The family of this 120-nucleotide RNA sequence from Snuella sedimenti is "SAM riboswitch aptamer (S box leader)".
[Rfam]
RNA sequence: GUGUUAUCAAGAAAGGCAGAGGGAAUAGACCCAGUGAAGCCUUGGCAACCCUUUAUCUUGUAAAGAAGGUGCUACGUUCUACUAACAGUCAGCGAUAAACGAUUGUUGGAAAGAUAACGG
Number, nucleotide and partner (000 for none) at each position: 001g000002u119003g118004u117005u116006a115007u114008c113009a000010a000011g000012a000013a043014a042015g041016g040017c039018a000019g000020a000021g032022g031023g030024a000025a000026u081027a080028g079029a078030c023031c022032c021033a000034g000035u000036g000037a000038a000039g017040c016041c015042u014043u013044g073045g072046c071047a070048a000049c069050c068051c065052u064053u063054u062055a000056u000057c000058u000059u000060g000061u000062a054063a053064a052065g051066a000067a000068g050069g049070u047071g046072c045073u044074a000075c000076g000077u112078u029079c028080u027081a026082c109083u108084a107085a106086c105087a104088g103089u102090c101091a000092g000093c000094g000095a000096u000097a000098a000099a000100c000101g090102a089103u088104u087105g086106u085107u084108g083109g082110a000111a000112a077113g008114a007115u006116a005117a004118c003119g002120g000
A search with the family's covariance model found it, with a score of 80 bits.